[Rfam]
RNA sequence: ACGGGAGUCCGAGGGUGCCGAAAGCGGGCACGGGCUGGACUGAGAGUGCGGACCUUCUAUCCGCUGACCGUUACAACCUGAUCCGGGUCAUGCCGGCGAAGGGAGGAAUCACAUCAUGAAU
Dot-bracket structure: ((((.((((((........................))))).......((((.........)))))..)))).....(((...((((......))))...)))...................